[Rfam]
Shown here is a 104-nucleotide sequence from Colocasia esculenta, a member of the family "Small nucleolar RNA snoR99". A reference for the family is Marker et al. (2002), "Experimental RNomics: identification of 140 candidates for small non-messenger RNAs in the plant Arabidopsis thaliana", Curr Biol. By type it is an H/ACA-box small nucleolar RNA.

RNA sequence: GUGCCUUUUAAGGAUGAGCAGAUCCCUGAUAUGCACUUUCCAUCUUCUUCACUUUGUCAGCUUCCACACAUGUUUUUAGUUGAUCCUUUUCGGACGGAACAUUU
Dot-bracket structure: ......................................(((.((...........(((((((...............)))))))........)).)))......